[Rfam]
RNA sequence: AAGCAAUGCCCCCCCAAGUAUAGUCUGAACUGGUAUUGCUGAGACUGUCCCCCCCUGCUCUGACCAGGAAAUGAUCACCUAAUCUUCUCCCCCCCCUU
Numbered sequence: 001a002a003g004c005a006a007u008g009c010c011c012c013c014c015c016a017a018g019u020a021u022a023g024u025c026u027g028a029a030c031u032g033g034u035a036u037u038g039c040u041g042a043g044a045c046u047g048u049c050c051c052c053c054c055c056u057g058c059u060c061u062g063a064c065c066a067g068g069a070a071a072u073g074a075u076c077a078c079c080u081a082a083u084c085u086u087c088u089c090c091c092c093c094c095c096c097u098u
Stems, first nucleotide, its partner, number of pairs: 001097001003096001038058002041055001
Dot-bracket structure: (.(..................................((.(.............).)).....................................)).
Source information
The family of this 98-nucleotide sequence from Nyctiprogne leucopyga is "Z30 small nucleolar RNA". The family has 20 seed sequences and 802 matches in Rfam 15.1. The organism belongs to Nyctiprogne, within Eukaryota. By type it is a C/D-box small nucleolar RNA. Gene Ontology terms of the family: RNA processing and nucleolus. The literature on the family includes a 2002 paper in Mol Cell Biol by Galardi et al., "Purified box C/D snoRNPs are able to reproduce site-specific 2'-O-methylation of target RNA in vitro". The base pairs follow the family's consensus structure, which was predicted with PFOLD.